A member of the RNA family "DUF3800-V RNA", 97 nucleotides long. It is one of the family's seed sequences.
[Rfam]
RNA sequence: UUACUUGACGGGUAAAUCCUGUUACGUUCCUUGGGUGUUUCCUUCCAUCGGUUGGCACUAAGCCUAGGGGUUUGAGCGUAAUAGGGGCCGUCAUUUU
Numbered sequence: 001u002u003a004c005u006u007g008a009c010g011g012g013u014a015a016a017u018c019c020u021g022u023u024a025c026g027u028u029c030c031u032u033g034g035g036u037g038u039u040u041c042c043u044u045c046c047a048u049c050g051g052u053u054g055g056c057a058c059u060a061a062g063c064c065u066a067g068g069g070g071u072u073u074g075a076g077c078g079u080a081a082u083a084g085g086g087g088c089c090g091u092c093a094u095u096u097u
Stems, first nucleotide, its partner, number of pairs: 003095001005093001008091002023080007030068007041055002045051002